RNA sequence: CUUCCAUCGGGGAGAGAAGACCCCGUGGAGUUUUACUGCAGCUUGUGCCUGUGGUAUAGUAGGGAUUGCAUAGGGUAUCUGGGAGCCAUGCCCAGCGUCUUGCGGGAUGCUGGGAAGCAACGAUGUAACACCAGACUUUUCCUGCAGUACCACUUAUCCAGUGAAGACUGGAGACACGUGCAGGUGGGCAGUUCGGCUGGGGCGGCACCCCUUUGAAAAGAUAUCAAAGGGGCCCAAAGUUGAGUUCAAACGGGGCAGAAAUCCGUUGAAGAGGGCAAAGCCAAAAACUCGACUGAAUGGGUUUCCAAACGCACGGAAUCCAUAGACGAAAGUCUGGCUUAGCGAUCCUUCGUGUGCCCACUAUUGGGGCCCGGAGGUGACAGAAAAAUUACCCCAGGGAUAACAGGCUCGUCGCGGGCGAGAGCUCCUAUCGACCCCGCGGUUUGGUACCUCGAUGUCGGCUUUUCCUAUCCUGGUCCUGCAGCAGGGGCCAAGGGUGAGGCUGCUCGCCUAUUAAAAGGGAACAUGAGCUGGGUUUAGACCGUCGUGAGACAGGUCGGUCUCUGCCUGAUGGAAGCGU
Numbered sequence: 001c002u003u004c005c006a007u008c009g010g011g012g013a014g015a016g017a018a019g020a021c022c023c024c025g026u027g028g029a030g031u032u033u034u035a036c037u038g039c040a041g042c043u044u045g046u047g048c049c050u051g052u053g054g055u056a057u058a059g060u061a062g063g064g065a066u067u068g069c070a071u072a073g074g075g076u077a078u079c080u081g082g083g084a085g086c087c088a089u090g091c092c093c094a095g096c097g098u099c100u101u102g103c104g105g106g107a108u109g110c111u112g113g114g115a116a117g118c119a120a121c122g123a124u125g126u127a128a129c130a131c132c133a134g135a136c137u138u139u140u141c142c143u144g145c146a147g148u149a150c151c152a153c154u155u156a157u158c159c160a161g162u163g164a165a166g167a168c169u170g171g172a173g174a175c176a177c178g179u180g181c182a183g184g185u186g187g188g189c190a191g192u193u194c195g196g197c198u199g200g201g202g203c204g205g206c207a208c209c210c211c212u213u214u215g216a217a218a219a220g221a222u223a224u225c226a227a228a229g230g231g232g233c234c235c236a237a238a239g240u241u242g243a244g245u246u247c248a249a250a251c252g253g254g255g256c257a258g259a260a261a262u263c264c265g266u267u268g269a270a271g272a273g274g275g276c277a278a279a280g281c282c283a284a285a286a287a288c289u290c291g292a293c294u295g296a297a298u299g300g301g302u303u304u305c306c307a308a309a310c311g312c313a314c315g316g317a318a319u320c321c322a323u324a325g326a327c328g329a330a331a332g333u334c335u336g337g338c339u340u341a342g343c344g345a346u347c348c349u350u351c352g353u354g355u356g357c358c359c360a361c362u363a364u365u366g367g368g369g370c371c372c373g374g375a376g377g378u379g380a381c382a383g384a385a386a387a388a389u390u391a392c393c394c395c396a397g398g399g400a401u402a403a404c405a406g407g408c409u410c411g412u413c414g415c416g417g418g419c420g421a422g423a424g425c426u427c428c429u430a431u432c433g434a435c436c437c438c439g440c441g442g443u444u445u446g447g448u449a450c451c452u453c454g455a456u457g458u459c460g461g462c463u464u465u466u467c468c469u470a471u472c473c474u475g476g477u478c479c480u481g482c483a484g485c486a487g488g489g490g491c492c493a494a495g496g497g498u499g500a501g502g503c504u505g506c507u508c509g510c511c512u513a514u515u516a517a518a519a520g521g522g523a524a525c526a527u528g529a530g531c532u533g534g535g536u537u538u539a540g541a542c543c544g545u546c547g548u549g550a551g552a553c554a555g556g557u558c559g560g561u562c563u564c565u566g567c568c569u570g571a572u573g574g575a576a577g578c579g580u
Stems, first nucleotide, its partner, number of pairs: 001577008010569003014564002022398002025395001027394002029390005035192004042184007051153007059145007068136001078135005085118002096109005157172004195208001196206003209231006234337002240292006246272002249267006273282002297323009325334001327332001348376005354371001356370004407448003411445001412442007422432002459534001460532004464526001465523005472497002476491005500512004540558004544553003
Rfam assigns this 580-nucleotide part of an RNA from a Nitrosopumilaceae archaeon to the family "Archaeal large subunit ribosomal RNA". Taxonomically the source falls in Nitrosopumilaceae (Archaea, Nitrososphaerota, Nitrososphaeria, Nitrosopumilales).